[Rfam]
RNA sequence: UAAUAGAGUAGAGGUUGCGUUGCUUAUCAGUAUAUUGUCCGAUGUAUCAGGUACAGAGGAGGACAGUGGAAAGGAAGAGACGCCGAAGAACGGUAUGGCCUGAACAUAUCUGUUCUGGGCAUAUGGUUAAGAGCCAUAUGACUGUCAUCCGUAUGGAUGGGGAGCUACUUAAAGA
Number, nucleotide and partner (000 for none) at each position: 001u000002a000003a000004u000005a000006g170007a169008g168009u167010a166011g165012a000013g000014g000015u000016u000017g083018c082019g081020u080021u079022g000023c077024u076025u075026a000027u000028c000029a000030g000031u000032a000033u068034a067035u066036u065037g064038u063039c062040c061041g000042a000043u000044g000045u000046a000047u000048c000049a000050g000051g000052u000053a000054c000055a000056g000057a000058g000059g000060a000061g040062g039063a038064c037065a036066g035067u034068g033069g000070a000071a000072a000073g000074g000075a025076a024077g023078a000079g021080a020081c019082g018083c017084c000085g000086a000087a116088g115089a114090a113091c112092g111093g110094u108095a107096u106097g105098g000099c000100c000101u000102g000103a000104a000105c097106a096107u095108a094109u000110c093111u092112g091113u090114u089115c088116u087117g143118g142119g000120c140121a139122u138123a137124u136125g135126g134127u133128u000129a000130a000131g000132a000133g127134c126135c125136a124137u123138a122139u121140g120141a000142c118143u117144g000145u160146c159147a158148u157149c156150c155151g000152u000153a000154u000155g150156g149157a148158u147159g146160g145161g000162g000163a000164g000165c011166u010167a009168c008169u007170u006171a000172a000173a000174g000175a000
This 175-nucleotide RNA sequence from Lacrimispora xylanisolvens belongs to the Rfam family "Lysine riboswitch aptamer".
Pairs were carried over by alignment from the consensus structure, which is taken from published work.
The match comes from Rfam's covariance-model search (115 bits).
Rfam links the family to the GO term lysine biosynthetic process.